[Rfam]
Rfam assigns this 228-nucleotide sequence from a Rhodospirillaceae bacterium to the family "permuted transfer-messenger RNA". It is annotated as a non-coding RNA gene. About the family: Bacterial tmRNA, also known as 10Sa RNA or SsrA, is named for its dual tRNA and mRNA-like properties. Its family is annotated with RNA catabolic process in the Gene Ontology. The family's consensus secondary structure is taken from published work.
RNA sequence: GGAAAUAAAUGAUCUGUGUAAUAAGCGUUUCGGACCCGGGGGCGGAACCCGGCACCUCCACCAUAUACCAUUCGGCUUUGGCGGGAUGGGGUUGCGGGGGUGACUUAGGCUUUGACGGGGCGUGGUAAAGACUGGUUUUUUCCCGGCAUGAUACCGCCGUAUCGGGUCAAUUUUAUAAGUGCCAAUGAUAAUCAGCCGGCAGCAAUGCCGGUGGCGCUCGCUGCCUAG
Dot-bracket structure: (((((........(.((........(((.(((...(((((.......)))))(((((((....................................))))))).............))).)))........)).)....)))))((((........)))).....................................................................